[Rfam]
RNA sequence: GUUAAAAGACGCGAGAACCGUCUUCGCCGAAAGUCUAAGGAUUCCUGGGCAACGUUCAUCGACCCAGGGUGAGUCGGUCCCUAAGCCGAGGGGGAAACCCGUAGGCGAUGGACAACAGGUUAAUAUUCCUGUACCCGGUGGCUGGCGAAUACCAAGGCCAGAGGGGGGACGCAGAAGGGAAGGCACCGCCACGAGAUGGUUUUCGUGGUCCAAGCCCGCAGGGGGGGUCUCAGGUAAAUCCGGGACCCAUGAACCGAGAGGUGACGGGGAGCCGCGCAAGCGGCGAAGGGGCCGGGCCCACGCUGCCAAGAAAAGCCUCGCUGGAAGUGAGCCAUCGGACCGUACCGCAAACCGACACUGGUAGACGGGAGGAAGACUCCAAGGCGCA
Numbered sequence: 001g002u003u004a005a006a007a008g009a010c011g012c013g014a015g016a017a018c019c020g021u022c023u024u025c026g027c028c029g030a031a032a033g034u035c036u037a038a039g040g041a042u043u044c045c046u047g048g049g050c051a052a053c054g055u056u057c058a059u060c061g062a063c064c065c066a067g068g069g070u071g072a073g074u075c076g077g078u079c080c081c082u083a084a085g086c087c088g089a090g091g092g093g094g095a096a097a098c099c100c101g102u103a104g105g106c107g108a109u110g111g112a113c114a115a116c117a118g119g120u121u122a123a124u125a126u127u128c129c130u131g132u133a134c135c136c137g138g139u140g141g142c143u144g145g146c147g148a149a150u151a152c153c154a155a156g157g158c159c160a161g162a163g164g165g166g167g168g169a170c171g172c173a174g175a176a177g178g179g180a181a182g183g184c185a186c187c188g189c190c191a192c193g194a195g196a197u198g199g200u201u202u203u204c205g206u207g208g209u210c211c212a213a214g215c216c217c218g219c220a221g222g223g224g225g226g227g228u229c230u231c232a233g234g235u236a237a238a239u240c241c242g243g244g245a246c247c248c249a250u251g252a253a254c255c256g257a258g259a260g261g262u263g264a265c266g267g268g269g270a271g272c273c274g275c276g277c278a279a280g281c282g283g284c285g286a287a288g289g290g291g292c293c294g295g296g297c298c299c300a301c302g303c304u305g306c307c308a309a310g311a312a313a314a315g316c317c318u319c320g321c322u323g324g325a326a327g328u329g330a331g332c333c334a335u336c337g338g339a340c341c342g343u344a345c346c347g348c349a350a351a352c353c354g355a356c357a358c359u360g361g362u363a364g365a366c367g368g369g370a371g372g373a374a375g376a377c378u379c380c381a382a383g384g385c386g387c388a
Stems, first nucleotide, its partner, number of pairs: 006024006025386004033366004039346002044068006053061002075342004080111002085106003089102001091100003115132005135338009145328001158324002163319004171306004177299003182293003186289001188209006210267002214262003221255002225248007233241002271284005352361002368380004
RNA: Bacterial large subunit ribosomal RNA, nucleotides 1353 to 1740